Rfam assigns this 177-nucleotide sequence from Vibrio genomosp. F10 to the family "Lysine riboswitch aptamer".
Taxonomically the source falls in Vibrio (Bacteria, Pseudomonadati, Vibrionales, Vibrionaceae).
Riboswitches are metabolite binding domains within certain messenger RNAs that serve as precision sensors for their corresponding targets.

RNA sequence: UUAUGCAGAAGAGGAGCACUGCCCAGGCAGAUAUAUGGUGGAACCUUAAUUCCAAUACAAUAUAUCAAUGGGGAGCAGUGCCGAGGUAAACGUAAUGUAAGGGUUAUGUUUAUCGGUUAAGUGGGCUGAAUCCCCUUAACUGUCACUAGCACCGCCUAGUGAUGAGCUUCUGAGGUC
Numbered sequence: 001u002u003a004u005g006c007a008g009a010a011g012a013g014g015a016g017c018a019c020u021g022c023c024c025a026g027g028c029a030g031a032u033a034u035a036u037g038g039u040g041g042a043a044c045c046u047u048a049a050u051u052c053c054a055a056u057a058c059a060a061u062a063u064a065u066c067a068a069u070g071g072g073g074a075g076c077a078g079u080g081c082c083g084a085g086g087u088a089a090a091c092g093u094a095a096u097g098u099a100a101g102g103g104u105u106a107u108g109u110u111u112a113u114c115g116g117u118u119a120a121g122u123g124g125g126c127u128g129a130a131u132c133c134c135c136u137u138a139a140c141u142g143u144c145a146c147u148a149g150c151a152c153c154g155c156c157u158a159g160u161g162a163u164g165a166g167c168u169u170c171u172g173a174g175g176u177c
Stems, first nucleotide, its partner, number of pairs: 006172006016081007024073001030066007085114012115141007123134003143162007